[Rfam]
RNA: Manganese Mn2+ riboswitch aptamer (yybP-ykoY)
Organism: Sphingomonas paeninsulae
RNA sequence: UUCGGGCUUCUUGGGGAGUAGCCACCCGCAUCUUCAGCGGGAUCUGCGUCAACAUACUCGGCCUUGGCCGUGGUGCAGAUGACCUUAUGGUUCGGCGAGACCAUGGAUCGGCAGGUGUUCGAUGGGGUCGGGCACGUGUAUGGAUCCGUGUGUUCGCCGCCGACCCCUGAGGAUU
Numbered sequence: 001u002u003c004g005g006g007c008u009u010c011u012u013g014g015g016g017a018g019u020a021g022c023c024a025c026c027c028g029c030a031u032c033u034u035c036a037g038c039g040g041g042a043u044c045u046g047c048g049u050c051a052a053c054a055u056a057c058u059c060g061g062c063c064u065u066g067g068c069c070g071u072g073g074u075g076c077a078g079a080u081g082a083c084c085u086u087a088u089g090g091u092u093c094g095g096c097g098a099g100a101c102c103a104u105g106g107a108u109c110g111g112c113a114g115g116u117g118u119u120c121g122a123u124g125g126g127g128u129c130g131g132g133c134a135c136g137u138g139u140a141u142g143g144a145u146c147c148g149u150g151u152g153u154u155c156g157c158c159g160c161c162g163a164c165c166c167c168u169g170a171g172g173a174u175u
Base pairs, nucleotide, nucleotide: 026040027039028038042080043079044078045077046076047075048074049073050072051071059070060069061068062067081174083172084171085170086169087168